[Rfam]
RNA sequence: AACUGGUCUGAUGGUAGUGGGUUAUCAGAAUUUAUUAACAUUAGUGUCACUAAAGUUGGUAUACAACCCUCCACUGCUAAAUUUGACUGGCUUAAA
Numbered sequence: 001a002a003c004u005g006g007u008c009u010g011a012u013g014g015u016a017g018u019g020g021g022u023u024a025u026c027a028g029a030a031u032u033u034a035u036u037a038a039c040a041u042u043a044g045u046g047u048c049a050c051u052a053a054a055g056u057u058g059g060u061a062u063a064c065a066a067c068c069c070u071c072c073a074c075u076g077c078u079a080a081a082u083u084u085g086a087c088u089g090g091c092u093u094a095a096a
Stems, first nucleotide, its partner, number of pairs: 001092001003090006010084002015079001016075006033061003037057002
Y RNA: a 96-nucleotide RNA sequence from Chlorocebus sabaeus.
By type it is a non-coding RNA gene.
The match comes from Rfam's covariance-model search (60 bits).
The source organism's lineage runs through Eukaryota, Opisthokonta, Sarcopterygii, Primates and Chlorocebus.
The literature on the family includes a 2000 paper in Nucleic Acids Res by Teunissen et al., "Conserved features of Y RNAs: a comparison of experimentally derived secondary structures".